[Rfam]
RNA: Small nucleolar RNA SNORD56
RNA sequence: AUACAAUGAUGGCAGUAUUUUUCCUCAACAGCAUUUCACCUAGUGAGUGUUGAUUCUUUGGGCCUGAGUGA
Numbered sequence: 001a002u003a004c005a006a007u008g009a010u011g012g013c014a015g016u017a018u019u020u021u022u023c024c025u026c027a028a029c030a031g032c033a034u035u036u037c038a039c040c041u042a043g044u045g046a047g048u049g050u051u052g053a054u055u056c057u058u059u060g061g062g063c064c065u066g067a068g069u070g071a
Stems, first nucleotide, its partner, number of pairs: 002070003008026002011023001